[Rfam]
RNA sequence: GCGGUCGUGGCGAAAUAGGCGAUACGCGCUGGGUUUAGAUCCCAGUGGGGUAAUACCCGUGGGGGUUCGAGUCCCCCCGACCGCA
Numbered sequence: 001g002c003g004g005u006c007g008u009g010g011c012g013a014a015a016u017a018g019g020c021g022a023u024a025c026g027c028g029c030u031g032g033g034u035u036u037a038g039a040u041c042c043c044a045g046u047g048g049g050g051u052a053a054u055a056c057c058c059g060u061g062g063g064g065g066u067u068c069g070a071g072u073c074c075c076c077c078c079g080a081c082c083g084c085a
Base pairs, nucleotide, nucleotide: 001084002083003082004081005080006079007078010027011026012025029045030044031043032042033041061077062076063075064074065073

This 85-nucleotide sequence from Streptomyces sp. BR123 belongs to the Rfam family "tRNA". The organism belongs to Streptomyces, within Bacteria. Rfam classes the family as a transfer RNA.